[Rfam]
RNA sequence: CUGGAGGCAGCGGUUCAUCGAUCUCUUCCUGGAGGAUUUUGUUGUGGAAUUAACACAAACACAUGAAUCGAUCGAUAAACCUCUGCAUCCAG
Numbered sequence: 001c002u003g004g005a006g007g008c009a010g011c012g013g014u015u016c017a018u019c020g021a022u023c024u025c026u027u028c029c030u031g032g033a034g035g036a037u038u039u040u041g042u043u044g045u046g047g048a049a050u051u052a053a054c055a056c057a058a059a060c061a062c063a064u065g066a067a068u069c070g071a072u073c074g075a076u077a078a079a080c081c082u083c084u085g086c087a088u089c090c091a092g
Stems, first nucleotide, its partner, number of pairs: 003090003008085003012081004017076007026067003
RNA: MIR162_1 microRNA precursor family
Organism: Manihot esculenta